[Rfam]
RNA sequence: ACAGACUCACCCAGCAUGCAGCUGCGGUUCCAGGUGGGUGCUUUUCCUGUCUGCCACAGAAACAUCCCCACAUUCUGUAACCACCUUGACCUGCCAAGGGUGAUGCAGCCAUCUGGGGACAUGGGA
Dot-bracket structure: .(((((.......((((.((.(((......))).)).)))).......))))).............((((.((.(((((..(((((...........))))).)))))..)).)))).........
RNA: Small nucleolar RNA SNORA77
Organism: Crocuta crocuta